[Rfam]
The family of this 79-nucleotide RNA from Polypterus senegalus is "Small nucleolar RNA SNORD74". NCBI's taxonomy places the organism under Eukaryota, Deuterostomia, Craniata, Teleostomi, Polypterus. It scores 52 bits against the family's covariance model. Rfam classes the family as a C/D-box small nucleolar RNA. For this family Rfam cites "Purified box C/D snoRNPs are able to reproduce site-specific 2'-O-methylation of target RNA in vitro" (Galardi et al., Mol Cell Biol, 2002).
RNA sequence: UAAAUAUAGAUAUGAUGAAAGAAUGUUGGUAGGGACAUCUGAUUGAUGUUGAAGAAAUGCCAACGUUUCUGAUCUUUUA
Numbered sequence: 001u002a003a004a005u006a007u008a009g010a011u012a013u014g015a016u017g018a019a020a021g022a023a024u025g026u027u028g029g030u031a032g033g034g035a036c037a038u039c040u041g042a043u044u045g046a047u048g049u050u051g052a053a054g055a056a057a058u059g060c061c062a063a064c065g066u067u068u069c070u071g072a073u074c075u076u077u078u079a
Stems, first nucleotide, its partner, number of pairs: 001079004